Notes: Shown here is an 81-nucleotide sequence, a member of the family "ZMP/ZTP riboswitch aptamer (pfl RNA motif)". It scores 56 bits against the family's covariance model. The family's consensus secondary structure is taken from published work.

[Rfam]
RNA sequence: GUAGCCGGCCGUGACUGGCGCUGAGGUGGAGAACCACCGGGGAGCGGCCUUCGGUGGAUGCCGCGCGCCUGGGCGAGGAGA
Number, nucleotide and partner (000 for none) at each position: 001g000002u000003a000004g052005c000006c000007g049008g048009c047010c046011g045012u044013g000014a000015c041016u040017g069018g068019c067020g066021c065022u000023g000024a000025g000026g037027u036028g035029g034030a000031g000032a000033a000034c029035c028036a027037c026038c000039g000040g016041g015042g000043a000044g012045c011046g010047g009048c008049c007050u000051u000052c004053g000054g000055u000056g000057g000058a000059u075060g074061c073062c072063g000064c000065g021066c020067g019068c018069c017070u000071g000072g062073g061074c060075g059076a000077g000078g000079a000080g000081a000